[Rfam]
RNA sequence: AACCGCACCCCACGGUGAAAAAUACACUGAUAAAGAAGUGCUGGUAGACAUACACACGUAUGGCCGAAGGCAGGGACUUAGGAAAAGCAGACAA
Numbered sequence: 001a002a003c004c005g006c007a008c009c010c011c012a013c014g015g016u017g018a019a020a021a022a023u024a025c026a027c028u029g030a031u032a033a034a035g036a037a038g039u040g041c042u043g044g045u046a047g048a049c050a051u052a053c054a055c056a057c058g059u060a061u062g063g064c065c066g067a068a069g070g071c072a073g074g075g076a077c078u079u080a081g082g083a084a085a086a087g088c089a090g091a092c093a094a
Stems, first nucleotide, its partner, number of pairs: 006017004039072003047065001050061004

A member of the RNA family "RT-17 RNA", 94 nucleotides long. By type it is a small RNA.